Record summary:
The record is a 79-nucleotide RNA sequence from Alligator sinensis, which matches "Mammalian CPEB3 ribozyme" in Rfam. A reference for the family is Teixeira et al. (2004), "Autocatalytic RNA cleavage in the human beta-globin pre-mRNA promotes transcription termination", Nature.
RNA sequence: AGAGGUUACCUGUUCAAGGCCAAACCAGAAGCAUUCAUAGUGUGACCUGUCAGAUUCCAACAAAUCUGCAAAUUCUGCU
Numbered sequence: 001a002g003a004g005g006u007u008a009c010c011u012g013u014u015c016a017a018g019g020c021c022a023a024a025c026c027a028g029a030a031g032c033a034u035u036c037a038u039a040g041u042g043u044g045a046c047c048u049g050u051c052a053g054a055u056u057c058c059a060a061c062a063a064a065u066c067u068g069c070a071a072a073u074u075c076u077g078c079u
Base pairs, nucleotide, nucleotide: 018047019046021044024079026077027076028075029074030073031043032042033041051068052067053066054065055064056063